[Rfam]
This 121-nucleotide RNA sequence from Trema orientale belongs to the Rfam family "MIR397 microRNA precursor family". For this family Rfam cites "High throughput approaches reveal splicing of primary microRNA transcripts and tissue specific expression of mature microRNAs in Vitis vinifera" (Mica et al., BMC Genomics, 2009). It scores 74 bits against the family's covariance model. The family has 7 seed sequences and 496 matches in Rfam 15.1. Rfam links the family to the GO terms RISC complex and miRNA-mediated post-transcriptional gene silencing.
RNA sequence: AGCUGAAACGUCAUUGAGUGCAGCGUUGAUGAAGUUCAAUUUUUCUACUACUACUCUUUCCAAUCUCUUAAUUUCUGACAGAAUUAGAACUUUGUUAGCGCUGCACUCAAUUAUGUUUCUA
Numbered sequence: 001a002g003c004u005g006a007a008a009c010g011u012c013a014u015u016g017a018g019u020g021c022a023g024c025g026u027u028g029a030u031g032a033a034g035u036u037c038a039a040u041u042u043u044u045c046u047a048c049u050a051c052u053a054c055u056c057u058u059u060c061c062a063a064u065c066u067c068u069u070a071a072u073u074u075c076u077g078a079c080a081g082a083a084u085u086a087g088a089a090c091u092u093u094g095u096u097a098g099c100g101c102u103g104c105a106c107u108c109a110a111u112u113a114u115g116u117u118u119c120u121a
Stems, first nucleotide, its partner, number of pairs: 006118006013111016030094005